[Rfam]
RNA sequence: CUUCACCGACCCCAGCAGCAGGGGCGUCGAACGGUCCUGGCCGUAGGUGGCCAGCAGCGCCUGCGCCUC
Number, nucleotide and partner (000 for none) at each position: 001c000002u000003u000004c000005a000006c000007c000008g000009a000010c000011c000012c000013c000014a000015g019016c000017a000018g000019c015020a000021g000022g000023g000024g000025c065026g064027u063028c000029g000030a000031a000032c059033g058034g000035u000036c000037c054038u053039g052040g000041c050042c049043g048044u000045a000046g000047g000048u043049g042050g041051c000052c039053a038054g037055c000056a000057g000058c033059g032060c000061c000062u000063g027064c026065g025066c000067c000068u000069c000
This 69-nucleotide sequence from Amycolatopsis sp. SID8362 belongs to the Rfam family "ASpks TB sRNA".
The family's consensus secondary structure is taken from published work.